[Rfam]
RNA sequence: CCGUGCAGCCGGGGAGUUAGCGGUGCCCUGAACCUGCAAUCCGCUACAGCAGGGGUGAUGCCAAACUGAGGCUUUUAUCUUGUAGAGCUGCCCUCUAUAAGUGGCGUUGACGUCUGGGUCUUACGCAACAGAACUCUAUGAAUCGUGUCAGGUCAGGAAUGAAGCAGCACUAAGUAGAAUCUUCUGUGUGCCGUAAGGGUGCCUGGGCCGAGUUAACUGUAGAGGUAACGUCUAUGGGGUGGAGUCGAAGGGCGGCGCACGU
Numbered sequence: 001c002c003g004u005g006c007a008g009c010c011g012g013g014g015a016g017u018u019a020g021c022g023g024u025g026c027c028c029u030g031a032a033c034c035u036g037c038a039a040u041c042c043g044c045u046a047c048a049g050c051a052g053g054g055g056u057g058a059u060g061c062c063a064a065a066c067u068g069a070g071g072c073u074u075u076u077a078u079c080u081u082g083u084a085g086a087g088c089u090g091c092c093c094u095c096u097a098u099a100a101g102u103g104g105c106g107u108u109g110a111c112g113u114c115u116g117g118g119u120c121u122u123a124c125g126c127a128a129c130a131g132a133a134c135u136c137u138a139u140g141a142a143u144c145g146u147g148u149c150a151g152g153u154c155a156g157g158a159a160u161g162a163a164g165c166a167g168c169a170c171u172a173a174g175u176a177g178a179a180u181c182u183u184c185u186g187u188g189u190g191c192c193g194u195a196a197g198g199g200u201g202c203c204u205g206g207g208c209c210g211a212g213u214u215a216a217c218u219g220u221a222g223a224g225g226u227a228a229c230g231u232c233u234a235u236g237g238g239g240u241g242g243a244g245u246c247g248a249a250g251g252g253c254g255g256c257g258c259a260c261g262u
Stems, first nucleotide, its partner, number of pairs: 002261005008056003011029004016024003033053005061255002066250002070246005076241010089227002093224006101217002103214003112208008120197006126188002129186005135178005145170004153162003
A member of the RNA family "Bacterial large signal recognition particle RNA" from Lactonifactor longoviformis, 262 nucleotides long.
It scores 190 bits against the family's covariance model.
The family's consensus secondary structure is taken from published work.
The signal recognition particle (SRP) is a universally conserved ribonucleoprotein involved in the co-translational targeting of proteins to membranes.
Clan: SRP clan.
The family's RNA type in Rfam is non-coding RNA gene.